[Rfam]
RNA sequence: UUAAAAACGAAUAUUUUGCCGUAGACAGUAGGUGCACUGCUUAAUAUCCUACCGAGGCUUUGUAUAAAUAAACUAACGAUAGAAAUACAUUGACGUAUUUUAUGUUAGAAUUUAAGUAAACAAAGACCUCUAAUGUCUACAGACAAAGAGGUCUUUUAAUAUUUGG
Numbered sequence: 001u002u003a004a005a006a007a008c009g010a011a012u013a014u015u016u017u018g019c020c021g022u023a024g025a026c027a028g029u030a031g032g033u034g035c036a037c038u039g040c041u042u043a044a045u046a047u048c049c050u051a052c053c054g055a056g057g058c059u060u061u062g063u064a065u066a067a068a069u070a071a072a073c074u075a076a077c078g079a080u081a082g083a084a085a086u087a088c089a090u091u092g093a094c095g096u097a098u099u100u101u102a103u104g105u106u107a108g109a110a111u112u113u114a115a116g117u118a119a120a121c122a123a124a125g126a127c128c129u130c131u132a133a134u135g136u137c138u139a140c141a142g143a144c145a146a147a148g149a150g151g152u153c154u155u156u157u158a159a160u161a162u163u164u165g166g
Stems, first nucleotide, its partner, number of pairs: 028052005034040002127151005134145004
Record summary
Shown here is a 166-nucleotide sequence from Anaerovirgula multivorans, a member of the family "Ribosomal protein L10 leader". A search with the family's covariance model found it, with a score of 64 bits. The family's RNA type in Rfam is cis-regulatory leader. Pairs were carried over by alignment from the consensus structure, which was predicted with CMfinder. Taxonomically the source falls in Anaerovirgula (Bacteria, Clostridia, Peptostreptococcales, Natronincolaceae).